Rfam assigns this 117-nucleotide RNA from Actinotalea bogoriensis to the family "ALIL pseudoknot".
A reference for the family is Mazauric et al. (2008), "Apical loop-internal loop RNA pseudoknots: a new type of stimulator of -1 translational frameshifting in bacteria", J Biol Chem.
A search with the family's covariance model found it, with a score of 92 bits.

RNA sequence: GGCGAGUUUCUUCGGGGCGGAGCUCGACCGCCAACACAAGAAGUAGUCGCGUUCAUCGACGCGAACCGCGACGAGCUCGGUGUCGAGCCCAUCUGCAGCGUGCUGCAGGUGGCGCCG
Numbered sequence: 001g002g003c004g005a006g007u008u009u010c011u012u013c014g015g016g017g018c019g020g021a022g023c024u025c026g027a028c029c030g031c032c033a034a035c036a037c038a039a040g041a042a043g044u045a046g047u048c049g050c051g052u053u054c055a056u057c058g059a060c061g062c063g064a065a066c067c068g069c070g071a072c073g074a075g076c077u078c079g080g081u082g083u084c085g086a087g088c089c090c091a092u093c094u095g096c097a098g099c100g101u102g103c104u105g106c107a108g109g110u111g112g113c114g115c116c117g
Base pairs, nucleotide, nucleotide: 016032017031018030019029020028078117079116080115081114082113089112090111092109093108094107095106096105097104098103